[Rfam]
RNA sequence: GCGGGGGUUGCCAAGCCAGGUCAAAGGCGCAGCCCUGAGGCGGCUGUCCCGUAGGGGUUCGAGGGUUCGAAUCCCUCUCCCCGCA
Numbered sequence: 001g002c003g004g005g006g007g008u009u010g011c012c013a014a015g016c017c018a019g020g021u022c023a024a025a026g027g028c029g030c031a032g033c034c035c036u037g038a039g040g041c042g043g044c045u046g047u048c049c050c051g052u053a054g055g056g057g058u059u060c061g062a063g064g065g066u067u068c069g070a071a072u073c074c075c076u077c078u079c080c081c082c083g084c085a
Stems, first nucleotide, its partner, number of pairs: 001084007010028003030046005061077005
RNA: tRNA
Organism: Bathyarchaeum sp.